[Rfam]
RNA: Plastid-ccsA-ndhD-1 3UTR RNA
Organism: Olea europaea
RNA sequence: GAACUGAUGAGAACCCUGUGAAUCAAAUAUUGUAGUGAUUCACAGGGUUCGCGC
Numbered sequence: 001g002a003a004c005u006g007a008u009g010a011g012a013a014c015c016c017u018g019u020g021a022a023u024c025a026a027a028u029a030u031u032g033u034a035g036u037g038a039u040u041c042a043c044a045g046g047g048u049u050c051g052c053g054c
Base pairs, nucleotide, nucleotide: 008053009052011050012049013048014047015046016045017044018043019042020041021040022039023038024037025036